[Rfam]
RNA sequence: UUGAAUAUUAAAUUAUAGCUGUAGACAGUAGGUGCCAGAAAGGCUUAAAUCUGCCUGCCGAGGCUGGAGAUAGAUGAAGUUAUUAGACUGUAUAGUCUCCGGCUGUCUGCGGAGGCUUUUUUUAGUUGUAAAA
Numbered sequence: 001u002u003g004a005a006u007a008u009u010a011a012a013u014u015a016u017a018g019c020u021g022u023a024g025a026c027a028g029u030a031g032g033u034g035c036c037a038g039a040a041a042g043g044c045u046u047a048a049a050u051c052u053g054c055c056u057g058c059c060g061a062g063g064c065u066g067g068a069g070a071u072a073g074a075u076g077a078a079g080u081u082a083u084u085a086g087a088c089u090g091u092a093u094a095g096u097c098u099c100c101g102g103c104u105g106u107c108u109g110c111g112g113a114g115g116c117u118u119u120u121u122u123u124a125g126u127u128g129u130a131a132a133a
Stems, first nucleotide, its partner, number of pairs: 028058006034044003094117008

Shown here is a 133-nucleotide sequence from Acetohalobium arabaticum, a member of the family "Ribosomal protein L10 leader".
The base pairs follow the family's consensus structure, which was predicted with CMfinder.
It scores 73 bits against the family's covariance model.